[Rfam]
RNA sequence: UUGCAGUCAGUUAAGCUGACUGUGCUUUUUUUCCCUGAGGGGGCCUGGUGUACCACGGCUGCAAACAACAGCCUCUUGGCAUGCAUGCAGCAUGCUGCCUGUCUGGGCUGCUCUAAGGGACCCUGGAGACAGCC
Numbered sequence: 001u002u003g004c005a006g007u008c009a010g011u012u013a014a015g016c017u018g019a020c021u022g023u024g025c026u027u028u029u030u031u032u033c034c035c036u037g038a039g040g041g042g043g044c045c046u047g048g049u050g051u052a053c054c055a056c057g058g059c060u061g062c063a064a065a066c067a068a069c070a071g072c073c074u075c076u077u078g079g080c081a082u083g084c085a086u087g088c089a090g091c092a093u094g095c096u097g098c099c100u101g102u103c104u105g106g107g108c109u110g111c112u113c114u115a116a117g118g119g120a121c122c123c124u125g126g127a128g129a130c131a132g133c134c
Stems, first nucleotide, its partner, number of pairs: 003053001005051001019049004025043004078122002088110004093105001
Record summary:
Rfam assigns this 134-nucleotide sequence from Odocoileus virginianus to the family "Small nucleolar RNA SNORA70". Rfam links the family to the GO terms nucleolus and RNA processing. The literature on the family includes a 2000 paper in IUBMB Life by Charette and Gray, "Pseudouridine in RNA: what, where, how, and why". Rfam describes the family as follows. snoRNA U70 seems to be exclusive to mammals and is a member of the H/ACA class of snoRNA which contain H (ANANNA) and ACA box motifs. H/ACA box snoRNAs are involved in the conversion of uridines to pseudouridines (5-ribosyluracil) a constituent of structural RNAs (transfer, ribosomal, small nuclear, and small nucleolar). NCBI's taxonomy places the organism under Eukaryota, Laurasiatheria, Cervidae, Odocoileinae, Odocoileus virginianus. Rfam classes the family as an H/ACA-box small nucleolar RNA.